[Rfam]
RNA sequence: CAUCUCUGGAGAGUGCCGCGCGUGAUUGCGGCCACCCAAGGGGUAACUUUGUCCGCAUCUUGCGUGCGGGCGGGGGGAACUCUCAGGUUAAGAGGACAGAGGAGAGACG
Numbered sequence: 001c002a003u004c005u006c007u008g009g010a011g012a013g014u015g016c017c018g019c020g021c022g023u024g025a026u027u028g029c030g031g032c033c034a035c036c037c038a039a040g041g042g043g044u045a046a047c048u049u050u051g052u053c054c055g056c057a058u059c060u061u062g063c064g065u066g067c068g069g070g071c072g073g074g075g076g077g078a079a080c081u082c083u084c085a086g087g088u089u090a091a092g093a094g095g096a097c098a099g100a101g102g103a104g105a106g107a108c109g
Base pairs, nucleotide, nucleotide: 001104003102004101005100006099007098008097015032016031017030018029034088035087036086038083041082042081043080047075048074049073050072051071052070053069054068055067056066057065
Glycine riboswitch aptamer: a 109-nucleotide sequence from Tumebacillus flagellatus. NCBI's taxonomy places the organism under Bacteria, Bacillota, Caryophanales, Alicyclobacillaceae, Tumebacillus. A search with the family's covariance model found it, with a score of 44 bits. Its family is annotated with glycine biosynthetic process in the Gene Ontology.